Source information
This 46-nucleotide sequence from Tetracentron sinense belongs to the Rfam family "Plastid-rpl16 group II-D1 intron". Plastid-rpl16 is a non-coding RNA (ncRNA) recognised in plastids. The base pairs follow the family's consensus structure, which was predicted with LocARNA. The literature on the family includes a 2023 paper in Plant Commun by Richter et al., "Retrograde signaling in plants: A critical review focusing on the GUN pathway and beyond".

[Rfam]
RNA sequence: AAGAGCCUCGAGUCAAUAAAGACUGAGGAGAUUGACUCGGAAAAAA
Numbered sequence: 001a002a003g004a005g006c007c008u009c010g011a012g013u014c015a016a017u018a019a020a021g022a023c024u025g026a027g028g029a030g031a032u033u034g035a036c037u038c039g040g041a042a043a044a045a046a
Base pairs, nucleotide, nucleotide: 008040010038011037012036013035014034015033016032017031